This 148-nucleotide RNA from Ligilactobacillus ubinensis belongs to the Rfam family "Listeria sRNA rli38". The family's consensus secondary structure was predicted with RNAalifold. A reference for the family is Toledo-Arana et al. (2009), "The Listeria transcriptional landscape from saprophytism to virulence", Nature.

[Rfam]
RNA sequence: GUUACACUUAAGUAGUAAAUCAAUUAAAUUUGAGAGUGAAAGUCCUAUAAAGCUAUCUUUUAUUGCGAUAAAUGAAUUUAAUUUAGUUUAAAAAUAUAUGCUUUCCUACCAAAAGUCCUGCCAAAAAUUGAUUGGUAGGGUUUUUGCU
Dot-bracket structure: .........(((....................................((((...((.(((((....))))).)).))...))((.(.....).)).....)))........((((((((((((.......))))))))).)))....
Numbered sequence: 001g002u003u004a005c006a007c008u009u010a011a012g013u014a015g016u017a018a019a020u021c022a023a024u025u026a027a028a029u030u031u032g033a034g035a036g037u038g039a040a041a042g043u044c045c046u047a048u049a050a051a052g053c054u055a056u057c058u059u060u061u062a063u064u065g066c067g068a069u070a071a072a073u074g075a076a077u078u079u080a081a082u083u084u085a086g087u088u089u090a091a092a093a094a095u096a097u098a099u100g101c102u103u104u105c106c107u108a109c110c111a112a113a114a115g116u117c118c119u120g121c122c123a124a125a126a127a128u129u130g131a132u133u134g135g136u137a138g139g140g141u142u143u144u145u146g147c148u
Stems, first nucleotide, its partner, number of pairs: 010104003049083002051078002056075002059072005084096002087093001113144003116140009